[Rfam]
RNA sequence: ACUAUGACUUGCGCUCAAGUGCCAAGUCCUCUACUCGCUUAUGUUCGGACGGCCGAACCGCUCGCGA
Numbered sequence: 001a002c003u004a005u006g007a008c009u010u011g012c013g014c015u016c017a018a019g020u021g022c023c024a025a026g027u028c029c030u031c032u033a034c035u036c037g038c039u040u041a042u043g044u045u046c047g048g049a050c051g052g053c054c055g056a057a058c059c060g061c062u063c064g065c066g067a
Stems, first nucleotide, its partner, number of pairs: 006028005035067004043058006